[Rfam]
RNA: Streptomyces RNA 5676
Organism: Streptomyces inhibens
RNA sequence: AGAUGAGAGAAACACCCCGCUCGCAGGGGACUGCGGGCGACGCCCGGUCGGCGCUUCCCCGGCUCCGAUCAGGCCGUGCCCUCGCGCACAACACCGGAACUUCUGGUUCCGGGAAUCCUCACCGAUCGGA
Numbered sequence: 001a002g003a004u005g006a007g008a009g010a011a012a013c014a015c016c017c018c019g020c021u022c023g024c025a026g027g028g029g030a031c032u033g034c035g036g037g038c039g040a041c042g043c044c045c046g047g048u049c050g051g052c053g054c055u056u057c058c059c060c061g062g063c064u065c066c067g068a069u070c071a072g073g074c075c076g077u078g079c080c081c082u083c084g085c086g087c088a089c090a091a092c093a094c095c096g097g098a099a100c101u102u103c104u105g106g107u108u109c110c111g112g113g114a115a116u117c118c119u120c121a122c123c124g125a126u127c128g129g130a
Base pairs, nucleotide, nucleotide: 004121005120006119007118009117010116018039019038020037021036022035023034024033025032026031042074043073044072046070047069049067050066051065053063054062076089077088078087079086094112095111096110097109098108099107100105122129123128